[Rfam]
Nucleotides: 074
Base pairs, nucleotide, nucleotide: 001073002072003071004070
Number, partner (000 for none) and nucleotide at each position: 001073g002072u003071c004070a005000g006000a007000a008000a009000a010000u011000u012000g013000g014000a015000u016000u017000g018000a019000u020000a021000u022000g023000a024000u025000g026000a027000u028000c029000a030000u031000c032000u033000g034000u035000g036000a037000g038000g039000u040000a041000c042000u043000a044000c045000a046000g047000u048000u049000a050000a051000u052000a053000g054000u055000a056000u057000g058000u059000u060000a061000g062000a063000g064000u065000u066000c067000u068000a069000g070004u071003g072002g073001c074000a
Shown here is a 74-nucleotide RNA sequence from Sus scrofa, a member of the family "Small nucleolar RNA SNORD28". The family's consensus secondary structure was predicted with PFOLD. Its family is annotated with nucleolus and RNA processing in the Gene Ontology. Taxonomically the source falls in Sus (Eukaryota, Teleostomi, Sarcopterygii, Suidae).